[Rfam]
Ribosomal S15 leader: a 109-nucleotide sequence from Aliiglaciecola lipolytica. Pairs were carried over by alignment from the consensus structure, which is taken from published work. A reference for the family is Benard et al. (1996), "Pseudoknot and translational control in the expression of the S15 ribosomal protein", Biochimie. Its family is annotated with regulation of translation, ncRNA-mediated in the Gene Ontology. It scores 76 bits against the family's covariance model. The family is grouped with related families in Rfam's "Ribosomal Protein S15 Leader clan". NCBI's taxonomy places the organism under Bacteria, Pseudomonadota, Gammaproteobacteria, Alteromonadales, Aliiglaciecola lipolytica.
RNA sequence: UGGCUCGGCUGAAUUAGUGAUCGGCGAGUCUUCAUUUAAUUUGGAGAAAAUUAUGUCACUAACUACUCAAGAAACUGCACAAAUCAUUUCCGACUUCGGCGUUAAAGAA
Numbered sequence: 001u002g003g004c005u006c007g008g009c010u011g012a013a014u015u016a017g018u019g020a021u022c023g024g025c026g027a028g029u030c031u032u033c034a035u036u037u038a039a040u041u042u043g044g045a046g047a048a049a050a051u052u053a054u055g056u057c058a059c060u061a062a063c064u065a066c067u068c069a070a071g072a073a074a075c076u077g078c079a080c081a082a083a084u085c086a087u088u089u090c091c092g093a094c095u096u097c098g099g100c101g102u103u104a105a106a107g108a109a
Stems, first nucleotide, its partner, number of pairs: 008025005041062004046057001